RNA sequence: GGCUGGCCUGAGUGCAGUAGUGUUUACAACUAAUUGAUCACAACCAGUUAUAGAUUCCUUUGUUCUGUCUCUACUCCCACUGCUUCACUUAAUCAGCCUUAA
Dot-bracket structure: ((((((...((..(.(((.(.(.....(((.((.........................)).)))...........)).)))....)..))..))))))....
The family of this 102-nucleotide RNA sequence from Microcebus murinus is "Y RNA".